A member of the RNA family "permuted transfer-messenger RNA" from Paracoccus denitrificans, 209 nucleotides long.
Rfam describes the family as follows. Bacterial tmRNA, also known as 10Sa RNA or SsrA, is named for its dual tRNA and mRNA-like properties. Its role is to liberate the mRNA from a stalled ribosome. To accomplish this part of the tmRNA is used as a reading frame that ends in a translation stop signal.
NCBI's taxonomy places the organism under Bacteria, Pseudomonadati, Pseudomonadota, Rhodobacterales, Paracoccus denitrificans.
For this family Rfam cites "Phylogenetic analysis of tmRNA secondary structure" (Williams and Bartel, RNA, 1996).
The family's RNA type in Rfam is non-coding RNA gene.
[Rfam]
RNA sequence: GGACAUAAACGCGCAGGUAAUAAGCGGAUCGGACCCGGGGGCGGUACCCGGCGGCUCCACCAGAAUCCCUCGUUGGGGGCACAUGGGGCCGAAACAGGAUCGACGAACGUCUAAAGCUGUUUGCUUUGUCUCGGUGAGCUACCACCGUCAUCGGUGCAAAAUGUACAGUUGCCAACGACAACCGUGCUCCGGUGGCUCUGGCUGCGUAA
Numbered sequence: 001g002g003a004c005a006u007a008a009a010c011g012c013g014c015a016g017g018u019a020a021u022a023a024g025c026g027g028a029u030c031g032g033a034c035c036c037g038g039g040g041g042c043g044g045u046a047c048c049c050g051g052c053g054g055c056u057c058c059a060c061c062a063g064a065a066u067c068c069c070u071c072g073u074u075g076g077g078g079g080c081a082c083a084u085g086g087g088g089c090c091g092a093a094a095c096a097g098g099a100u101c102g103a104c105g106a107a108c109g110u111c112u113a114a115a116g117c118u119g120u121u122u123g124c125u126u127u128g129u130c131u132c133g134g135u136g137a138g139c140u141a142c143c144a145c146c147g148u149c150a151u152c153g154g155u156g157c158a159a160a161a162u163g164u165a166c167a168g169u170u171g172c173c174a175a176c177g178a179c180a181a182c183c184g185u186g187c188u189c190c191g192g193u194g195g196c197u198c199u200g201g202c203u204g205c206g207u208a209a
Stems, first nucleotide, its partner, number of pairs: 001131005013120004025109002029106003035051005052091007132147004